Rfam assigns this 138-nucleotide RNA from Ligilactobacillus ubinensis to the family "Ribosomal protein L20 leader". The organism belongs to Ligilactobacillus, within Bacteria. The family's consensus secondary structure was predicted with CMfinder. The match comes from Rfam's covariance-model search (62 bits). This family is a putative r-protein leader autoregulatory structure found in B. subtilis and other low-GC Gram-positive bacteria. It is located in the 5' untranslated regions of mRNAs encoding initiation factor 3 followed by ribosomal proteins L35 and L20 (infC-rpmI-rplT).
RNA sequence: AGAAAAAAGCAGAAGCUCCCGCUUCUCGCCUAAGGGAUAAUCAAGUUCCGGGGCAAGAUAAUGAAAUUAAUUCCGAUAAAAACGGAUUAGUGCGGGCGUUUAGCAUUUUUGCUAGAGCGUCCGUUUUUUCUGCAUUUU
Numbered sequence: 001a002g003a004a005a006a007a008a009g010c011a012g013a014a015g016c017u018c019c020c021g022c023u024u025c026u027c028g029c030c031u032a033a034g035g036g037a038u039a040a041u042c043a044a045g046u047u048c049c050g051g052g053g054c055a056a057g058a059u060a061a062u063g064a065a066a067u068u069a070a071u072u073c074c075g076a077u078a079a080a081a082a083c084g085g086a087u088u089a090g091u092g093c094g095g096g097c098g099u100u101u102a103g104c105a106u107u108u109u110u111g112c113u114a115g116a117g118c119g120u121c122c123g124u125u126u127u128u129u130c131u132g133c134a135u136u137u138u
Base pairs, nucleotide, nucleotide: 011026012025013024014023015022016021028054029053030052034049035048036047037046038045092124093123094122095121096120097119098118099117100116